Rfam assigns this 110-nucleotide RNA sequence from Zavarzinia compransoris to the family "Guanidine-I riboswitch aptamer".
Lineage of the source: Bacteria > Pseudomonadota > Rhodospirillales > Zavarziniaceae > Zavarzinia.
It scores 87 bits against the family's covariance model.
[Rfam]
RNA sequence: GAGUUUGGUGGCUAGGGUUCCGGCCGGAUUUUCCGGUGCUGGUCCGAGAGCGACCAACCGGUCGGGGAGACAUCCGAUCGGUUGCACGGCGGGAUAAAAGCCCGGGAGGC
Dot-bracket structure: ......(((.((..((...(((((((((...)))))).).)).))....)).)))(((((((((((......))))))))))).(.[...(((.......))).)..]..